[Rfam]
RNA sequence: GGCUGGUCAAAGUACAGUGGUGUUUACAAUUAAUUGAUCACGACUAGUCAUAGAUUUGUUUCUUCUCCACUCCCAUUGUCUUACUUGACUAGCCUUAA
Dot-bracket structure: ((((((((.((..(.(((((.(.....(((.((.....................)).)))...........))))))....)..))))))))))....
RNA: Y RNA
Organism: Callithrix jacchus